[Rfam]
RNA sequence: GCACGUAACUCACAACGGAUCGUCCGGCACGUACCUGCCGGGGAGAAGAAGGA
Numbered sequence: 001g002c003a004c005g006u007a008a009c010u011c012a013c014a015a016c017g018g019a020u021c022g023u024c025c026g027g028c029a030c031g032u033a034c035c036u037g038c039c040g041g042g043g044a045g046a047a048g049a050a051g052g053a
Stems, first nucleotide, its partner, number of pairs: 006048001009045003024041006
RNA: msiK RNA
Organism: Herbiconiux ginsengi